[Rfam]
The record is a 131-nucleotide RNA sequence from Rhinoptilus africanus, which matches "Small nucleolar RNA SNORA24" in Rfam. It is annotated as an H/ACA-box small nucleolar RNA. About the family: ACA24 is a member of the H/ACA class of snoRNA that guide the sites of modification of uridines to pseudouridines. Pairs were carried over by alignment from the consensus structure, which was predicted with RNAfold.
RNA sequence: AUCCAUGACUCCAUGGGGGCUGCCGCUCGUGGCUGACUCCCUUCCUAGGCAUGGAAGAGCAAUUAUUUGCUAAUUGGCAAAACUUUUACCCUCUUGUGGGCAUUAGUCGUUGACUGUGGCAAGUAACAGGA
Number, nucleotide and partner (000 for none) at each position: 001a000002u055003c054004c053005a052006u051007g050008a000009c000010u000011c000012c000013a000014u000015g041016g040017g039018g038019g000020c035021u000022g033023c032024c031025g000026c000027u000028c000029g000030u000031g024032g023033c022034u000035g020036a000037c000038u018039c017040c016041c015042u000043u000044c000045c000046u000047a000048g000049g000050c007051a006052u005053g004054g003055a002056a000057g000058a000059g000060c000061a000062a000063u000064u000065a000066u000067u000068u128069g127070c000071u125072a000073a000074u122075u121076g120077g000078c000079a000080a115081a000082a000083c106084u105085u000086u000087u000088a000089c100090c099091c098092u000093c000094u000095u000096g000097u000098g091099g090100g089101c000102a000103u000104u000105a084106g083107u000108c000109g000110u000111u000112g000113a000114c000115u080116g000117u000118g000119g000120c076121a075122a074123g000124u000125a071126a000127c069128a068129g000130g000131a000